[Rfam]
RNA sequence: GGAGGUGCGUGUCAGUGAUGGCACAGCUGAACAUCGAUCGUUUGGUAUUGCCAAGCUGAUCUGUUCAGUCCAGUGCAGUCACAAAGGUUGAUUCAGUCGCCAAUGGACCUGCCGUUGCCUUCGUCGCACGGUAGACAUCCAAUGGUUACUUGAACGUCCGCAAUUUUCCAAAUUUGGGGUUAACGGAUGGGUCGUUUAAAAUUUAUAACACCUCCAUAGUAGGUGAAAGAUUCGGCGUUGGUUUG
Number, nucleotide and partner (000 for none) at each position: 001g215002g214003a213004g212005g211006u210007g209008c000009g000010u000011g000012u000013c000014a000015g082016u081017g080018a079019u078020g000021g000022c000023a000024c000025a000026g000027c068028u067029g066030a000031a064032c063033a062034u000035c000036g061037a060038u059039c058040g056041u055042u054043u053044g000045g000046u000047a000048u000049u000050g000051c000052c000053a043054a042055g041056c040057u000058g039059a038060u037061c036062u033063g032064u031065u000066c029067a028068g027069u000070c000071c000072a000073g000074u000075g000076c000077a000078g019079u018080c017081a016082c015083a000084a000085a000086g000087g000088u000089u000090g000091a000092u000093u000094c000095a000096g000097u000098c000099g000100c000101c000102a000103a000104u000105g000106g000107a000108c000109c000110u000111g000112c000113c000114g000115u000116u000117g000118c000119c000120u000121u000122c000123g000124u000125c000126g000127c000128a000129c000130g000131g000132u000133a000134g000135a000136c000137a000138u000139c000140c000141a000142a000143u000144g000145g000146u000147u000148a000149c000150u000151u000152g000153a000154a000155c000156g000157u000158c000159c000160g000161c000162a000163a000164u000165u000166u000167u000168c000169c000170a000171a000172a000173u000174u000175u000176g000177g000178g000179g000180u000181u000182a000183a000184c000185g000186g000187a000188u000189g000190g000191g000192u000193c000194g000195u000196u000197u000198a000199a000200a000201a000202u000203u000204u000205a000206u000207a000208a000209c007210a006211c005212c004213u003214c002215c001216a000217u000218a000219g000220u000221a000222g000223g000224u000225g000226a000227a000228a000229g000230a000231u000232u000233c000234g000235g000236c000237g000238u000239u000240g000241g000242u000243u000244u000245g000
This 245-nucleotide RNA sequence from Diabrotica balteata belongs to the Rfam family "Arthropod 7SK RNA". The family has 19 seed sequences and 229 matches in Rfam 15.1. The match comes from Rfam's covariance-model search (95 bits). The literature on the family includes a 2008 paper in Mol Biol Evol by Gruber et al., "Arthropod 7SK RNA". It is annotated as a non-coding RNA gene.